Annotation: A member of the RNA family "Glycine riboswitch aptamer" from Anaerofilum sp. An201, 94 nucleotides long. About the family: This family represents the bacterial glycine riboswitch. Glycine riboswitches usually consist of two metabolite-binding aptamers domains with similar structures in tandem. The aptamers cooperatively bind glycine to regulate the expression of downstream genes. In Bacillus subtilis, this riboswitch is found upstream of the gcvT operon which controls glycine degradation. Gene Ontology term of the family: glycine biosynthetic process. The pairing is the family consensus, mapped onto this sequence.
RNA sequence: GGAUGUAACUCUGGAGAAUCCCGCAGCAGCCGGGUGCCGAAGGGGCAAGCGCACACAGCGCGAAUCUCUCAGGCAAAAGGACAGAGGGAGGCCG
Numbered sequence: 001g002g003a004u005g006u007a008a009c010u011c012u013g014g015a016g017a018a019u020c021c022c023g024c025a026g027c028a029g030c031c032g033g034g035u036g037c038c039g040a041a042g043g044g045g046c047a048a049g050c051g052c053a054c055a056c057a058g059c060g061c062g063a064a065u066c067u068c069u070c071a072g073g074c075a076a077a078a079g080g081a082c083a084g085a086g087g088g089a090g091g092c093c094g
Base pairs, nucleotide, nucleotide: 006089009086010085011084012083013082020034021033022032023031036074037073038072039070040069043068044067045066049061050060